[Rfam]
RNA sequence: AAAAAAGGCUUCUGUCAUGAUUGGUACAUGUAGGGCAACUCUCUUCCUUAUGCAAAAUCCACAUCAAGAGAUUUUGGAAGCAUAAUAUUUUGGUAGGUGAGCAGCUGGUGAUUGUUGAUUAAAAAUUUUAUGCUUAU
Numbered sequence: 001a002a003a004a005a006a007g008g009c010u011u012c013u014g015u016c017a018u019g020a021u022u023g024g025u026a027c028a029u030g031u032a033g034g035g036c037a038a039c040u041c042u043c044u045u046c047c048u049u050a051u052g053c054a055a056a057a058u059c060c061a062c063a064u065c066a067a068g069a070g071a072u073u074u075u076g077g078a079a080g081c082a083u084a085a086u087a088u089u090u091u092g093g094u095a096g097g098u099g100a101g102c103a104g105c106u107g108g109u110g111a112u113u114g115u116u117g118a119u120u121a122a123a124a125a126u127u128u129u130a131u132g133c134u135u136a137u
Base pairs, nucleotide, nucleotide: 008081009080010079011078012077013026014025015024016023017022027052028051029050030046032044033043034042035041053076054075055074056073057072058071059070099135100134101133102132104131106130107129108128110127111126112125113124
Shown here is a 137-nucleotide RNA from Ictidomys tridecemlineatus, a member of the family "U11 spliceosomal RNA". The family's consensus secondary structure is taken from published work.